This 125-nucleotide sequence from Brassica cretica belongs to the Rfam family "MIR9563 microRNA precursor family". Taxonomically the source falls in Brassica (Eukaryota, Streptophyta, Streptophytina, Euphyllophyta). The family has 2 seed sequences and 5,832 matches in Rfam 15.1. Rfam links the family to the GO terms miRNA-mediated post-transcriptional gene silencing and RISC complex.
RNA sequence: AGGAUAUAAGAACCCGACUCUUAACUUUUAACUGAAAAAGUUAAGAGUCGGCUCUUAAAUCUUUUAUUUAAGAGCUGACUCUUAACUUUUUCAGCUAAAAGUUAAGAGUCGAGUUCUUAUAUUCU
Numbered sequence: 001a002g003g004a005u006a007u008a009a010g011a012a013c014c015c016g017a018c019u020c021u022u023a024a025c026u027u028u029u030a031a032c033u034g035a036a037a038a039a040g041u042u043a044a045g046a047g048u049c050g051g052c053u054c055u056u057a058a059a060u061c062u063u064u065u066a067u068u069u070a071a072g073a074g075c076u077g078a079c080u081c082u083u084a085a086c087u088u089u090u091u092c093a094g095c096u097a098a099a100a101g102u103u104a105a106g107a108g109u110c111g112a113g114u115u116c117u118u119a120u121a122u123u124c125u
Stems, first nucleotide, its partner, number of pairs: 001125013015111016032094008041085007